[Rfam]
RNA sequence: CGGGGAAAGAAGACCCUGUUGAGCUUGACUCUAGUUUGACAUUGUGAAAAGACAUGGAGGGUGUAGAAUAAGUGGGAGCUUCGGCGCCGGUGAAAUACCACUACCUCCAUCGUUUUUUUACUUAUUCAAUGAGGCGGAGCUGGGAUGAAAGUCCCACCUUCUUGCAUUAAGGUCCUUUACGGGCCGAUCCGGGUUGAAGACAUUGUCAGGUGGGGAGUUUGGCUGGGGCGGCACAUCUGUUAAAAGAUAACGCAGGUGUCCUAAGGGGGACUCAUGGAGAACAGAAAUCUCCAGUGGAACAAAAGGGUAAAAGUCCCCUUGAUUUUGAUUUUCAGUGUGAAUACAAACCAUGAAAGUGUGGCCUAUCGAUCCUUUAGUCCCUCGGAGUUUGAGGCUAGAGGUGCCAGAAAAGUUACCACAGGGAUAACUGGCUUGUGGCAGCCAAGCGUUCAUAGCGACGUUGCUUUUUGAUCCUUCGAUGUCGGCUCUUCCUAUCAUACCGAAGCAGAAUUCGGUAAGCGUUGGAUUGUUCACCCACUAAUAGGGAACGUGAGCUGGGUUUAGACCGUCGUGAGACAGGUUAGUUUUACCCUA
Number, nucleotide and partner (000 for none) at each position: 001c000002g000003g593004g592005g591006a000007a588008a587009g000010a000011a000012g000013a000014c000015c422016c421017u420018g419019u000020u418021g417022a414023g413024c412025u411026u410027g000028a218029c217030u216031c215032u000033a000034g000035u210036u209037u208038g207039a206040c205041a204042u000043u000044g121045u120046g119047a118048a117049a116050a115051g114052a113053c112054a110055u109056g108057g107058a106059g105060g104061g000062u000063g000064u000065a000066g000067a000068a000069u000070a000071a102072g101073u100074g099075g098076g000077a000078g085079c084080u000081u000082c000083g000084g079085c078086g000087c000088c000089g000090g000091u000092g000093a000094a000095a000096u000097a000098c075099c074100a073101c072102u071103a000104c060105c059106u058107c057108c056109a055110u054111c000112g053113u052114u051115u050116u049117u048118u047119u046120a045121c044122u000123u000124a000125u198126u197127c196128a195129a194130u000131g000132a000133g000134g000135c191136g190137g189138a188139g000140c000141u000142g000143g154144g153145a152146u151147g000148a000149a000150a000151g146152u145153c144154c143155c000156a000157c000158c000159u000160u000161c000162u000163u000164g000165c000166a000167u000168u000169a000170a000171g185172g184173u183174c182175c181176u000177u000178u000179a000180c000181g175182g174183g173184c172185c171186g000187a000188u138189c137190c136191g135192g000193g000194u129195u128196g127197a126198a125199g000200a000201c000202a000203u000204u041205g040206u039207c038208a037209g036210g035211u000212g000213g000214g000215g031216a030217g029218u028219u000220u000221g234222g232223c231224u230225g000226g000227g000228g000229c000230g224231g223232c222233a000234c221235a257236u256237c255238u254239g253240u252241u000242a000243a000244a000245a000246g000247a000248u000249a000250a000251c000252g240253c239254a238255g237256g236257u235258g000259u000260c361261c360262u000263a000264a000265g000266g318267g317268g316269g315270a314271c313272u298273c297274a000275u293276g292277g291278a290279g289280a288281a000282c000283a000284g000285a000286a000287a000288u280289c279290u278291c277292c276293a275294g000295u000296g000297g273298a272299a308300c307301a000302a000303a000304a000305g000306g000307g300308u299309a000310a000311a000312a000313g271314u270315c269316c268317c267318c266319u000320u000321g000322a000323u347324u346325u345326u000327g000328a342329u341330u340331u339332u000333c000334a000335g000336u000337g000338u000339g331340a330341a329342u328343a000344c000345a325346a324347a323348c000349c358350a357351u356352g000353a000354a000355a000356g351357u350358g349359u000360g261361g260362c000363c000364u000365a000366u000367c000368g000369a000370u000371c000372c400373u399374u398375u397376a396377g395378u000379c000380c394381c393382u392383c391384g000385g000386a000387g000388u000389u000390u000391g383392a382393g381394g380395c377396u376397a375398g374399a373400g372401g000402u000403g000404c000405c000406a000407g000408a000409a000410a026411a025412g024413u023414u022415a000416c000417c021418a020419c018420a017421g016422g015423g000424a000425u000426a000427a000428c000429u000430g000431g472432c000433u470434u000435g469436u000437g465438g464439c463440a462441g461442c460443c000444a000445a000446g456447c455448g000449u000450u000451c000452a000453u000454a000455g447456c446457g000458a000459c000460g442461u441462u440463g439464c438465u437466u000467u000468u000469u435470g433471a000472u431473c000474c000475u000476u000477c000478g000479a000480u000481g000482u000483c558484g556485g555486c554487u553488c550489u547490u546491c545492c544493u543494a000495u000496c521497a000498u000499a516500c515501c514502g513503a512504a511505g000506c000507a000508g000509a000510a000511u504512u503513c502514g501515g500516u499517a000518a000519g000520c000521g496522u000523u537524g536525g535526a000527u533528u000529g000530u000531u000532c000533a527534c000535c525536c524537a523538c000539u000540a000541a000542u000543a493544g492545g491546g490547a489548a000549c000550g488551u000552g000553a487554g486555c485556u484557g000558g483559g000560u000561u000562u000563a000564g582565a581566c580567c579568g577569u576570c575571g000572u000573g000574a000575g570576a569577c568578a000579g567580g566581u565582u564583a000584g000585u000586u000587u008588u007589a000590c000591c005592c004593u003594a000

A member of the RNA family "Eukaryotic large subunit ribosomal RNA" from Kwoniella shandongensis, 594 nucleotides of a longer RNA. Taxonomically the source falls in Kwoniella (Eukaryota, Fungi, Tremellomycetes, Cryptococcaceae). The family has 88 seed sequences and 107,465 matches in Rfam 15.1.